[Rfam]
RNA sequence: GUUGAAUUACUGGGGUGCCCAAAAGGCUGAGAUAGGAAAACCUGAACCCACAUAACUUGAUUCGGAUAAUACCGGCGAAAGGAGUAAUGUGUAUAUUUUU
Numbered sequence: 001g002u003u004g005a006a007u008u009a010c011u012g013g014g015g016u017g018c019c020c021a022a023a024a025g026g027c028u029g030a031g032a033u034a035g036g037a038a039a040a041c042c043u044g045a046a047c048c049c050a051c052a053u054a055a056c057u058u059g060a061u062u063c064g065g066a067u068a069a070u071a072c073c074g075g076c077g078a079a080a081g082g083a084g085u086a087a088u089g090u091g092u093a094u095a096u097u098u099u100u
Base pairs, nucleotide, nucleotide: 006088007087008086009085010084011050012049013048014047016044017027018026019025034043035042036041056081057080058079062075063074064073065072